Small nucleolar RNA Z247: a 133-nucleotide RNA from Lathyrus oleraceus. Pairs were carried over by alignment from the consensus structure, which was predicted with PFOLD. The family's RNA type in Rfam is C/D-box small nucleolar RNA. It scores 46 bits against the family's covariance model. A reference for the family is Chen et al. (2003), "The high diversity of snoRNAs in plants: identification and comparative study of 120 snoRNA genes from Oryza sativa", Nucleic Acids Res.
[Rfam]
RNA sequence: AUUCUCAACUCAGAUCUAAUCAUUAAAACCCUAAAUAGAUUGGAUUCUGAUUAUAAUCCUGUAGUGGUAAAACUCUCUGAUUAAAUCAAUCUCAGUUGGAUUGAUUUACAAUCUCAAUUGCUGAGUUUUGAGA
Numbered sequence: 001a002u003u004c005u006c007a008a009c010u011c012a013g014a015u016c017u018a019a020u021c022a023u024u025a026a027a028a029c030c031c032u033a034a035a036u037a038g039a040u041u042g043g044a045u046u047c048u049g050a051u052u053a054u055a056a057u058c059c060u061g062u063a064g065u066g067g068u069a070a071a072a073c074u075c076u077c078u079g080a081u082u083a084a085a086u087c088a089a090u091c092u093c094a095g096u097u098g099g100a101u102u103g104a105u106u107u108a109c110a111a112u113c114u115c116a117a118u119u120g121c122u123g124a125g126u127u128u129u130g131a132g133a
Base pairs, nucleotide, nucleotide: 004132005131006130007129008128084102085101086100087099089097